The record is a 143-nucleotide sequence from Streptococcus sp. DD10, which matches "PreQ1-II (pre queuosine) riboswitch aptamer" in Rfam. From the family's description: preQ1-II riboswitch was first reported for Weinberg et al. 2007 it was recognised in Streptococcaceae and Lactococcus families in 5' untranslated regions of genes of a membrane protein classified as COG4708 or DUF988.
RNA sequence: UGUGCUAUACUAGUAAGGUUGAAUGGCUUAACUUUUCUAAAUAGUUUUACUAUUUAGAAAUUCUUUAACUCAAUCAACCCUUGGUGCUUAGCUUCUUUCACCAAGCAUAUUACAUGCGGAAAACCGCUAAAGGAGAAAACAUG
Numbered sequence: 001u002g003u004g005c006u007a008u009a010c011u012a013g014u015a016a017g018g019u020u021g022a023a024u025g026g027c028u029u030a031a032c033u034u035u036u037c038u039a040a041a042u043a044g045u046u047u048u049a050c051u052a053u054u055u056a057g058a059a060a061u062u063c064u065u066u067a068a069c070u071c072a073a074u075c076a077a078c079c080c081u082u083g084g085u086g087c088u089u090a091g092c093u094u095c096u097u098u099c100a101c102c103a104a105g106c107a108u109a110u111u112a113c114a115u116g117c118g119g120a121a122a123a124c125c126g127c128u129a130a131a132g133g134a135g136a137a138a139a140c141a142u143g
Stems, first nucleotide, its partner, number of pairs: 018078005080105007092135006116127004